The record is a 209-nucleotide RNA from Hemibagrus wyckioides, which matches "Small nucleolar RNA ZL1" in Rfam. For this family Rfam cites "Insights into snoRNA biogenesis and processing from PAR-CLIP of snoRNA core proteins and small RNA sequencing" (Kishore et al., Genome Biol, 2013). Rfam 15.1 lists 300 matches to the family in 287 species. It is annotated as a C/D-box small nucleolar RNA. About the family: Host gene TRRAP. Predicted target U2@U47. Rfam links the family to the GO terms RNA processing and nucleolus.
[Rfam]
RNA sequence: ACACACACACACACGUGCACACACACACACACGUGUGUGUGUAUGCACACGUGUGUGUGUGUAUGCACACGUGUGUGUGUGUGUAUGCACACGUGUGUGUGUAUGCACACGUGUGUGUGUAUGCACACACGUGUGUGUGUGUGUAUGCACACACGUGUGUGUGUGUGUAUGCACACACGUGUGUGUGUAUGCACACACGUGUGUGUGUG
Numbered sequence: 001a002c003a004c005a006c007a008c009a010c011a012c013a014c015g016u017g018c019a020c021a022c023a024c025a026c027a028c029a030c031a032c033g034u035g036u037g038u039g040u041g042u043a044u045g046c047a048c049a050c051g052u053g054u055g056u057g058u059g060u061g062u063a064u065g066c067a068c069a070c071g072u073g074u075g076u077g078u079g080u081g082u083g084u085a086u087g088c089a090c091a092c093g094u095g096u097g098u099g100u101g102u103a104u105g106c107a108c109a110c111g112u113g114u115g116u117g118u119g120u121a122u123g124c125a126c127a128c129a130c131g132u133g134u135g136u137g138u139g140u141g142u143g144u145a146u147g148c149a150c151a152c153a154c155g156u157g158u159g160u161g162u163g164u165g166u167g168u169a170u171g172c173a174c175a176c177a178c179g180u181g182u183g184u185g186u187g188u189a190u191g192c193a194c195a196c197a198c199g200u201g202u203g204u205g206u207g208u209g
Base pairs, nucleotide, nucleotide: 004209005208006207007206008205009204010203014199015198016197027186028185029184030183031182032181036107037106038105039104041102043100045098046097047096048095049094050093051092052091053090054089055088056087065078066077067076068075069074109134110133111132112131113130114129115128116127117126118125119124137154138153139152140151141150142149156179157178158177159176162175163174164173165172